[Rfam]
RNA sequence: UCCAUGGGGAGUGCGGUUUCCCCACGAGGCUUCGGCCGAACGAUCGCGUCCCGACCCCCCUGGUUUUCCCGUCGCGACCGUCGAGGCUGCCUGAUG
Numbered sequence: 001u002c003c004a005u006g007g008g009g010a011g012u013g014c015g016g017u018u019u020c021c022c023c024a025c026g027a028g029g030c031u032u033c034g035g036c037c038g039a040a041c042g043a044u045c046g047c048g049u050c051c052c053g054a055c056c057c058c059c060c061u062g063g064u065u066u067u068c069c070c071g072u073c074g075c076g077a078c079c080g081u082c083g084a085g086g087c088u089g090c091c092u093g094a095u096g
Stems, first nucleotide, its partner, number of pairs: 005024006046090003050086002
RNA: chrB-a RNA